[Rfam]
RNA sequence: AGUUUAAUUGCCCAAGUUUAAGGUAAUUGAAUGUUUUGUCCAAGUGUUCCGGCUUCUGUGGCUAGAAGUAUAAUUUUAGAUCGUCUCUGUGAAUCUAUGGGACAAC
Numbered sequence: 001a002g003u004u005u006a007a008u009u010g011c012c013c014a015a016g017u018u019u020a021a022g023g024u025a026a027u028u029g030a031a032u033g034u035u036u037u038g039u040c041c042a043a044g045u046g047u048u049c050c051g052g053c054u055u056c057u058g059u060g061g062c063u064a065g066a067a068g069u070a071u072a073a074u075u076u077u078a079g080a081u082c083g084u085c086u087c088u089g090u091g092a093a094u095c096u097a098u099g100g101g102a103c104a105a106c
Base pairs, nucleotide, nucleotide: 003031004030005029006028007027008026009025010024011023012022034068035067036066037065040061041060083103084102085101087100088099089098090097
RNA: SL1 RNA
Organism: Loa loa